The family of this 173-nucleotide sequence from Clostridium carboxidivorans is "Lysine riboswitch aptamer".
It scores 88 bits against the family's covariance model.
From the family's description: Riboswitches are metabolite binding domains within certain messenger RNAs that serve as precision sensors for their corresponding targets.

[Rfam]
RNA sequence: CAAUAUGGUACAGAGGUUGCGGUUGUCAUAAGUAAUGUAUAUUUAAAAUACAAGAAAGGGUCAUCCGCCGAAGUUUACAAGCUUUAAUGUUUGUAUACUGGGACUAUGCUGAACAAGUAUAGUACUGUCUUUAGGAAAUUGCCCGAUUUUUUAAAGAAGUGCUUAUCAUAUUG
Numbered sequence: 001c002a003a004u005a006u007g008g009u010a011c012a013g014a015g016g017u018u019g020c021g022g023u024u025g026u027c028a029u030a031a032g033u034a035a036u037g038u039a040u041a042u043u044u045a046a047a048a049u050a051c052a053a054g055a056a057a058g059g060g061u062c063a064u065c066c067g068c069c070g071a072a073g074u075u076u077a078c079a080a081g082c083u084u085u086a087a088u089g090u091u092u093g094u095a096u097a098c099u100g101g102g103a104c105u106a107u108g109c110u111g112a113a114c115a116a117g118u119a120u121a122g123u124a125c126u127g128u129c130u131u132u133a134g135g136a137a138a139u140u141g142c143c144c145g146a147u148u149u150u151u152u153a154a155a156g157a158a159g160u161g162c163u164u165a166u167c168a169u170a171u172u173g
Base pairs, nucleotide, nucleotide: 006168007167008166009165012163013162019068020067021066022065024063025062027060036052037051038050039049040048042046072099073098074097076095077094078093079092080091081090082089100126101125103123104122105121106120107119108118109117110116128157129156130155131154132153133152134151135150136149137148138147